The family of this 171-nucleotide RNA sequence from Bacillus sp. V59.32b is "Group II catalytic intron D1-D4-3". The match comes from Rfam's covariance-model search (101 bits). Lineage of the source: Bacteria > Bacillota > Bacilli > Bacillaceae > Bacillus.
RNA sequence: UCCAUGGUAACGUGGAAUCUGAAGGAACGAGCGGCAAACCUCUGGUCUGAAGAACACGAACUCCAUAUAGGCUAGGGAUAAUUGGGAGAGCCUGCAUACUAGGGCAAAAUCCUUUCUGCCAAAGGUGGUACAGAGUAAAUGAAGCAGAUAUGCAGUGGGAAAGACUAUACU
Dot-bracket structure: ((((((....))))))............((....(...((.((((((((...........((.(((....(((..(.((.(..(((...((((........))))....))).............).)).)..)))..))).)))))))...))).))....)....).).